[Rfam]
RNA sequence: CCAAGGGCUGACACCCUUGGCUAGGAUAUUUCGCCCCGUGGGGCU
Numbered sequence: 001c002c003a004a005g006g007g008c009u010g011a012c013a014c015c016c017u018u019g020g021c022u023a024g025g026a027u028a029u030u031u032c033g034c035c036c037c038g039u040g041g042g043g044c045u
Base pairs, nucleotide, nucleotide: 001020002019003018004017005016006015007014033044034043035042036041
Dot-bracket structure: (((((((......)))))))............((((....)))).

Source information: Rfam assigns this 45-nucleotide RNA from Cyclobacterium marinum to the family "Acido-Lenti-1 RNA". It scores 39 bits against the family's covariance model.